[Rfam]
RNA: Small nucleolar RNA SNORD111
Organism: Ameiurus melas
RNA sequence: UCUAGUGAAAUGAUGAGUUUACUCAUGUCUCUUCUCUGACAUAUCACUGGAGAGAUUGUAAACACCUCUGAUCACUGCA
Numbered sequence: 001u002c003u004a005g006u007g008a009a010a011u012g013a014u015g016a017g018u019u020u021a022c023u024c025a026u027g028u029c030u031c032u033u034c035u036c037u038g039a040c041a042u043a044u045c046a047c048u049g050g051a052g053a054g055a056u057u058g059u060a061a062a063c064a065c066c067u068c069u070g071a072u073c074a075c076u077g078c079a
Stems, first nucleotide, its partner, number of pairs: 001079001003077003